[Rfam]
The family of this 102-nucleotide sequence from Macaca mulatta is "Y RNA". Rfam describes the family as follows. Y RNAs are components of the Ro ribonucleoprotein particle (Ro RNP), in association with Ro60 and La proteins. The Y RNAs and Ro60 and La proteins are well conserved, but the function of the Ro RNP is not known. In humans the RNA component can be one of four small RNAs -- hY1, hY3, hY4 and hY5. The organism belongs to Macaca, within Eukaryota. The family has 104 seed sequences and 26,986 matches in Rfam 15.1.

RNA sequence: GGUUGGUCCCAGUGCAGUGGUAUUUACAACUAAUGGAUCACAACCAGUUACAGGCUUAUUUCUUCCUUCUCCACUCUCAUUGCUUCACUUGACUAGCCUGGA
Dot-bracket structure: ((((((((..(..(.(((((.......((..((((.....................))))..))............)))))....)..).))))))))....